[Rfam]
Shown here is a 130-nucleotide RNA sequence from Carlito syrichta, a member of the family "Small nucleolar RNA SNORA33". ACA33 is a member of the H/ACA class of snoRNA that guide the sites of modification of uridines to pseudouridines. It scores 109 bits against the family's covariance model.

RNA sequence: AAACCAGCUAAUGAAUCUGUUUACCUGUGUGUGUUUCUGCAGAAAUUUUUAAAAAGCUGGCAACAGUAAAACCAUGUUAGGAACCUUAAGGACACUGAAGUUGUUAAAGUCCCUGAAAAUAAUCUAACUG
Numbered sequence: 001a002a003a004c005c006a007g008c009u010a011a012u013g014a015a016u017c018u019g020u021u022u023a024c025c026u027g028u029g030u031g032u033g034u035u036u037c038u039g040c041a042g043a044a045a046u047u048u049u050u051a052a053a054a055a056g057c058u059g060g061c062a063a064c065a066g067u068a069a070a071a072c073c074a075u076g077u078u079a080g081g082a083a084c085c086u087u088a089a090g091g092a093c094a095c096u097g098a099a100g101u102u103g104u105u106a107a108a109g110u111c112c113c114u115g116a117a118a119a120u121a122a123u124c125u126a127a128c129u130g
Stems, first nucleotide, its partner, number of pairs: 004060004016043005071123001074120001083110002086107004091102003